[Rfam]
RNA sequence: UCCCCCACAGUUCUCCGACUCUCGUUUCCCGAAAGGAAUGUCUAUUGUAGACCCCCCAUCCAGGCUGGUCACCACAACAUGCCGCUCUCGAGCCUGUAUCAGGACCUCGUGAAUGCCGCAGGACAAUCUGUUGUGGCCCGCACGCCGUCUGACUUCGGGACGGUCCAGCUUAGUCGGGGGAACGAGUGCUGGAACUUAACCCUAAGCAGAUAU
Numbered sequence: 001u002c003c004c005c006c007a008c009a010g011u012u013c014u015c016c017g018a019c020u021c022u023c024g025u026u027u028c029c030c031g032a033a034a035g036g037a038a039u040g041u042c043u044a045u046u047g048u049a050g051a052c053c054c055c056c057c058a059u060c061c062a063g064g065c066u067g068g069u070c071a072c073c074a075c076a077a078c079a080u081g082c083c084g085c086u087c088u089c090g091a092g093c094c095u096g097u098a099u100c101a102g103g104a105c106c107u108c109g110u111g112a113a114u115g116c117c118g119c120a121g122g123a124c125a126a127u128c129u130g131u132u133g134u135g136g137c138c139c140g141c142a143c144g145c146c147g148u149c150u151g152a153c154u155u156c157g158g159g160a161c162g163g164u165c166c167a168g169c170u171u172a173g174u175c176g177g178g179g180g181a182a183c184g185a186g187u188g189c190u191g192g193a194a195c196u197u198a199a200c201c202c203u204a205a206g207c208a209g210a211u212a213u
Base pairs, nucleotide, nucleotide: 009196010195011194015192016191017190
Ascomycota telomerase RNA: a 213-nucleotide part of an RNA from Thelonectria olida. Clan: Telomerase clan. A reference for the family is Qi et al. (2013), "The common ancestral core of vertebrate and fungal telomerase RNAs", Nucleic Acids Res. By type it is a non-coding RNA gene. The family has 4 seed sequences and 475 matches in Rfam 15.1. Its family is annotated with telomere maintenance via telomerase, telomerase catalytic core complex and telomerase activity in the Gene Ontology.